[Rfam]
The family of this 85-nucleotide RNA from Danionella cerebrum is "mir-729 microRNA precursor family". NCBI's taxonomy places the organism under Eukaryota, Bilateria, Deuterostomia, Actinopterygii, Danionella. Gene Ontology terms of the family: miRNA-mediated post-transcriptional gene silencing and RISC complex.
Nucleotides: 085
Stems, first nucleotide, its partner, number of pairs: 001085002004082002007079001011078001012075001014073002017070013031056003035052002037048001039046001
Number, partner (000 for none) and nucleotide at each position: 001085g002084c003000c004082a005081u006000c007079c008000a009000g010000u011078g012075a013000c014073c015072u016000g017070g018069g019068g020067u021066u022065g023064u024063a025062u026061u027060g028059u029058a030000a031056c032055c033054a034000a035052g036051c037048u038000a039046u040000a041000a042000a043000u044000g045000c046039a047000a048037g049000a050000u051036g052035c053000a054033u055032g056031g057000g058029u059028a060027u061026g062025a063024u064023a065022c066021g067020a068019c069018c070017u071000g072015g073014g074000u075012u076000a077000c078011u079007g080000u081005g082004u083000u084002g085001u